[Rfam]
RNA sequence: GCAUGCCUGGCUCCCUGUAUGCCACACGUAGAGACCGAUCUGUGUAUCAGAUUGCCUCCUGGGUGGCGUACCGGGAGCCAAGCAUGU
Numbered sequence: 001g002c003a004u005g006c007c008u009g010g011c012u013c014c015c016u017g018u019a020u021g022c023c024a025c026a027c028g029u030a031g032a033g034a035c036c037g038a039u040c041u042g043u044g045u046a047u048c049a050g051a052u053u054g055c056c057u058c059c060u061g062g063g064u065g066g067c068g069u070a071c072c073g074g075g076a077g078c079c080a081a082g083c084a085u086g087u
Stems, first nucleotide, its partner, number of pairs: 001087006008080007017071008027061002
Annotation:
A member of the RNA family "mir-160 microRNA precursor family" from Daucus carota, 87 nucleotides long. Rfam links the family to the GO terms RISC complex and miRNA-mediated post-transcriptional gene silencing. Lineage of the source: Eukaryota > Magnoliopsida > Mesangiospermae > Daucus sect. Daucus > Daucus carota. The family's consensus secondary structure was predicted with PFOLD.